The record is a 138-nucleotide sequence from Camellia sinensis, which matches "small nucleolar RNA snoR137" in Rfam. Rfam links the family to the GO terms RNA processing and nucleolus. Rfam 15.1 lists 808 matches to the family in 221 species. Pairs were carried over by alignment from the consensus structure, which was predicted with RNAalifold. It scores 60 bits against the family's covariance model. The literature on the family includes a 2009 paper in Nucleic Acids Res by Chen and Wu, "Mining small RNA sequencing data: a new approach to identify small nucleolar RNAs in Arabidopsis".

[Rfam]
RNA sequence: GUUGCUUUUUUGAAAGGCGAAUGACCAUUCUAAAAGUUGGUCAGUCAUAUCGGGUAGCAUAUAUAAAGAAUGUAUUGCCAGUUUUAAACAGCAUAAUGUUCUUCUGUUGCAUUGUGUUACCUGUCACCUGGUAAAUUU
Numbered sequence: 001g002u003u004g005c006u007u008u009u010u011u012g013a014a015a016g017g018c019g020a021a022u023g024a025c026c027a028u029u030c031u032a033a034a035a036g037u038u039g040g041u042c043a044g045u046c047a048u049a050u051c052g053g054g055u056a057g058c059a060u061a062u063a064u065a066a067a068g069a070a071u072g073u074a075u076u077g078c079c080a081g082u083u084u085u086a087a088a089c090a091g092c093a094u095a096a097u098g099u100u101c102u103u104c105u106g107u108u109g110c111a112u113u114g115u116g117u118u119a120c121c122u123g124u125c126a127c128c129u130g131g132u133a134a135a136u137u138u
Stems, first nucleotide, its partner, number of pairs: 003059004008054001019046002022043005077132005083126001090118003094114005